[Rfam]
About this RNA: Rfam assigns this 171-nucleotide RNA from Catenibacillus scindens to the family "Clostridiales-1 RNA". A search with the family's covariance model found it, with a score of 74 bits. The family has 194 seed sequences and 1,172 matches in Rfam 15.1. Rfam classes the family as a small RNA.

RNA sequence: UGAUGCCAAGGUCAAAAGGUCAUGCUUUUCAUGCUUACAUGAAAAAGCAUGACCUUGAGACCCGAAAAACAUGAGGUGCAGAGCAGACAUCCGGUGGAUGUCUGCUCUGCACCGACCGGAGCGAAGCGUAGAUUUUCGAGAGCGCGGAGCGCGGAGAAAUCCGUGGCAUCA
Numbered sequence: 001u002g003a004u005g006c007c008a009a010g011g012u013c014a015a016a017a018g019g020u021c022a023u024g025c026u027u028u029u030c031a032u033g034c035u036u037a038c039a040u041g042a043a044a045a046a047g048c049a050u051g052a053c054c055u056u057g058a059g060a061c062c063c064g065a066a067a068a069a070c071a072u073g074a075g076g077u078g079c080a081g082a083g084c085a086g087a088c089a090u091c092c093g094g095u096g097g098a099u100g101u102c103u104g105c106u107c108u109g110c111a112c113c114g115a116c117c118g119g120a121g122c123g124a125a126g127c128g129u130a131g132a133u134u135u136u137c138g139a140g141a142g143c144g145c146g147g148a149g150c151g152c153g154g155a156g157a158a159a160u161c162c163g164u165g166g167c168a169u170c171a
Stems, first nucleotide, its partner, number of pairs: 001171007010062004016056013029042005070123001075113004081107010131162001134159004142152004